[Rfam]
RNA sequence: GUUGAUCACUCUCCCUCAAGGGCUUCACACCAAGGUAGAGUUUUAUAUCCCAGGGAGACUUGGGGUAUUUACACAAGGCUGUGAAGCCCUUGGGGGAGACUGACCAA
Numbered sequence: 001g002u003u004g005a006u007c008a009c010u011c012u013c014c015c016u017c018a019a020g021g022g023c024u025u026c027a028c029a030c031c032a033a034g035g036u037a038g039a040g041u042u043u044u045a046u047a048u049c050c051c052a053g054g055g056a057g058a059c060u061u062g063g064g065g066u067a068u069u070u071a072c073a074c075a076a077g078g079c080u081g082u083g084a085a086g087c088c089c090u091u092g093g094g095g096g097a098g099a100c101u102g103a104c105c106a107a
Base pairs, nucleotide, nucleotide: 006103007102008101010099011098012097013096014095015094017092018091019090020089021088022087023086024085025084026083027082028081029080

MIR473 microRNA precursor family: a 107-nucleotide RNA sequence from Rosa chinensis. A search with the family's covariance model found it, with a score of 53 bits. Rfam links the family to the GO terms RISC complex and miRNA-mediated post-transcriptional gene silencing.